[Rfam]
RNA sequence: CUGCACAUCUACGGGAGCUCGGGGAGCCGGGCUGAGAGGGCAGCCGAUCCGCUGCCGACCGUCAGAACCUGACCUGGGUAAUGCCAGCGGAGGAACACUUGUCGUCGCUCAGC
Numbered sequence: 001c002u003g004c005a006c007a008u009c010u011a012c013g014g015g016a017g018c019u020c021g022g023g024g025a026g027c028c029g030g031g032c033u034g035a036g037a038g039g040g041c042a043g044c045c046g047a048u049c050c051g052c053u054g055c056c057g058a059c060c061g062u063c064a065g066a067a068c069c070u071g072a073c074c075u076g077g078g079u080a081a082u083g084c085c086a087g088c089g090g091a092g093g094a095a096c097a098c099u100u101g102u103c104g105u106c107g108c109u110c111a112g113c
Stems, first nucleotide, its partner, number of pairs: 006101002010097001011062004017032005039056005068093003074087004
The record is a 113-nucleotide RNA from Kyrpidia spormannii, which matches "TPP riboswitch aptamer (THI element)" in Rfam.
Pairs were carried over by alignment from the consensus structure, which is taken from published work.